This 115-nucleotide RNA sequence from Legionella drancourtii belongs to the Rfam family "Group II catalytic intron D1-D4-2". Taxonomically the source falls in Legionella drancourtii (Bacteria, Pseudomonadota, Gammaproteobacteria, Legionellaceae). The base pairs follow the family's consensus structure. Rfam 15.1 lists 1,231 matches to the family in 625 species.
RNA sequence: GAUGGUAGGCCCAUCGGUAUCGGUUGUCAGGAACAGGUAUCAAACUACUUCAAACUGCUUUUGUUAAGAGCAGGGGUGGUGAGCGUUGAAGAAAAGCUGGGAACACUCAGCAGGU
Numbered sequence: 001g002a003u004g005g006u007a008g009g010c011c012c013a014u015c016g017g018u019a020u021c022g023g024u025u026g027u028c029a030g031g032a033a034c035a036g037g038u039a040u041c042a043a044a045c046u047a048c049u050u051c052a053a054a055c056u057g058c059u060u061u062u063g064u065u066a067a068g069a070g071c072a073g074g075g076g077u078g079g080u081g082a083g084c085g086u087u088g089a090a091g092a093a094a095a096g097c098u099g100g101g102a103a104c105a106c107u108c109a110g111c112a113g114g115u
Stems, first nucleotide, its partner, number of pairs: 001015005016041006023034003046114001048091006054080002057077003061073004096111006